Rfam assigns this 122-nucleotide RNA sequence from Brucella intermedia to the family "Alphaproteobacterial ar14". A search with the family's covariance model found it, with a score of 72 bits. Lineage of the source: Bacteria > Pseudomonadota > Hyphomicrobiales > Brucella > Brucella intermedia.

RNA sequence: GCUUGUUCGGUUUUACUCCUCCUCCCAAAAACCGGACCCAAAGCGCGAUACUCCUCCUCCCAAUCGCGCUUUAUAGAUUCGCCCCCCACUGCACACUCCUCCUCCCAGUGCAGUGGGCGUUC
Numbered sequence: 001g002c003u004u005g006u007u008c009g010g011u012u013u014u015a016c017u018c019c020u021c022c023u024c025c026c027a028a029a030a031a032c033c034g035g036a037c038c039c040a041a042a043g044c045g046c047g048a049u050a051c052u053c054c055u056c057c058u059c060c061c062a063a064u065c066g067c068g069c070u071u072u073a074u075a076g077a078u079u080c081g082c083c084c085c086c087c088a089c090u091g092c093a094c095a096c097u098c099c100u101c102c103u104c105c106c107a108g109u110g111c112a113g114u115g116g117g118c119g120u121u122c
Stems, first nucleotide, its partner, number of pairs: 005037002008034007040072010085117010
Dot-bracket structure: ....((.(((((((.............))))))).))..((((((((((.............))))))))))............((((((((((.............)))))))))).....